Shown here is a 335-nucleotide sequence from Helicobacter sp. MIT 99-5507, a member of the family "Bacterial RNase P class A". Rfam classes the family as a ribozyme. A search with the family's covariance model found it, with a score of 247 bits. Pairs were carried over by alignment from the consensus structure, which is taken from published work. Rfam links the family to the GO terms tRNA processing, ribonuclease P activity and dimeric ribonuclease P complex. Lineage of the source: Bacteria > Pseudomonadati > Campylobacterota > Campylobacterales > Helicobacter.
[Rfam]
RNA sequence: AAGGUGUGGUGGGUGAUUGCUUGAUUAUUUUAAGAGGAAAGUCCGGACUACAAUGAAGCAGGAUUCCAUCUAACAGAUGGCUAUCGUAAGAUAAGGGAAAGUGCAACAGAAAAUAAACUGCUAUUUAAUAGUGAUGGUGAAACGGCGAGGUAAGAGCUCACCGGAUUCUAAGCAAUUAGAAUCGCAUUGCAAACCCAAUUCGUAGCAAAAAGAGCAGGUUAAAAGCUUCAUGAUUUUUAGCUCUUUGCUGAAAAAUUAUUGUGAAAUAAUUUUUAGAUAAAUAAUCACCCUAAAUUUAUUUUAGACAGAAUCCGGCUUAUAGCCACGCCUUAAAA
Numbered sequence: 001a002a003g004g005u006g007u008g009g010u011g012g013g014u015g016a017u018u019g020c021u022u023g024a025u026u027a028u029u030u031u032a033a034g035a036g037g038a039a040a041g042u043c044c045g046g047a048c049u050a051c052a053a054u055g056a057a058g059c060a061g062g063a064u065u066c067c068a069u070c071u072a073a074c075a076g077a078u079g080g081c082u083a084u085c086g087u088a089a090g091a092u093a094a095g096g097g098a099a100a101g102u103g104c105a106a107c108a109g110a111a112a113a114u115a116a117a118c119u120g121c122u123a124u125u126u127a128a129u130a131g132u133g134a135u136g137g138u139g140a141a142a143c144g145g146c147g148a149g150g151u152a153a154g155a156g157c158u159c160a161c162c163g164g165a166u167u168c169u170a171a172g173c174a175a176u177u178a179g180a181a182u183c184g185c186a187u188u189g190c191a192a193a194c195c196c197a198a199u200u201c202g203u204a205g206c207a208a209a210a211a212g213a214g215c216a217g218g219u220u221a222a223a224a225g226c227u228u229c230a231u232g233a234u235u236u237u238u239a240g241c242u243c244u245u246u247g248c249u250g251a252a253a254a255a256u257u258a259u260u261g262u263g264a265a266a267u268a269a270u271u272u273u274u275a276g277a278u279a280a281a282u283a284a285u286c287a288c289c290c291u292a293a294a295u296u297u298a299u300u301u302u303a304g305a306c307a308g309a310a311u312c313c314g315g316c317u318u319a320u321a322g323c324c325a326c327g328c329c330u331u332a333a334a335a
Stems, first nucleotide, its partner, number of pairs: 001331010011320001012289007020034005039318003043315005048205004056231001058229001061201005066080005081095001082093004096196002101194002103190003118136001120132005144162002147159003163185001164183008209246007217238001222236003226232001253272008